The family of this 172-nucleotide RNA from Magnetococcus marinus is "Group II catalytic intron D1-D4-3".
[Rfam]
RNA sequence: UUUACCGUGAGGUAAAAUCUGAAGGAAACCGAAAGCAAAGCGCUGAUCCGACGAACAGGAAUCGCAUACGAGGCGGUCAUGCUGGAUGAGGAGGGGACUAUCUCUAAAGUCCGAAACCUGUACGGAGAGCAUGGACGUAUAUGCGGCGGAUAUAAGCGUGAAGGUGCGUGUG
Numbered sequence: 001u002u003u004a005c006c007g008u009g010a011g012g013u014a015a016a017a018u019c020u021g022a023a024g025g026a027a028a029c030c031g032a033a034a035g036c037a038a039a040g041c042g043c044u045g046a047u048c049c050g051a052c053g054a055a056c057a058g059g060a061a062u063c064g065c066a067u068a069c070g071a072g073g074c075g076g077u078c079a080u081g082c083u084g085g086a087u088g089a090g091g092a093g094g095g096g097a098c099u100a101u102c103u104c105u106a107a108a109g110u111c112c113g114a115a116a117c118c119u120g121u122a123c124g125g126a127g128a129g130c131a132u133g134g135a136c137g138u139a140u141a142u143g144c145g146g147c148g149g150a151u152a153u154a155a156g157c158g159u160g161a162a163g164g165u166g167c168g169u170g171u172g
Stems, first nucleotide, its partner, number of pairs: 001016006030170002035165002040159005046151005062146006073138003077134007084112004090105004
About the family: Group II introns are found in rRNA, tRNA and mRNA of organelles in fungi, plants and protists, and also in mRNA in bacteria.